S-element: a 67-nucleotide sequence from Gillisella ampelina. This family represents a group of S-elements from p42d and related plasmids. The S-element has multiple functions and is believed to act as a negative regulator of repC transcription, be required for efficient replication and act as a translational enhancer of repC. Lineage of the source: Bacteria > Pseudomonadati > Pseudomonadota > Alphaproteobacteria > Gillisella ampelina. The match comes from Rfam's covariance-model search (68 bits). Pairs were carried over by alignment from the consensus structure, which is taken from published work.
[Rfam]
Nucleotides: 067
Stems, first nucleotide, its partner, number of pairs: 009063006017056003021053006028046001030044004
Number, partner (000 for none) and nucleotide at each position: 001000c002000g003000u004000c005000a006000a007000g008000a009063g010062u011061u012060u013059u014058u015000g016000c017056g018055c019054c020000a021053u022052u023051u024050u025049g026048g027000u028046g029000a030044g031043u032042g033041a034000u035000u036000u037000u038000c039000u040000u041033u042032u043031g044030c045000c046028u047000g048026c049025u050024g051023a052022a053021a054019g055018g056017u057000a058014a059013a060012a061011g062010a063009u064000g065000a066000u067000g
A reference for the family is Venkova-Canova et al. (2004), "Two discrete elements are required for the replication of a repABC plasmid: an antisense RNA and a stem-loop structure", Mol Microbiol.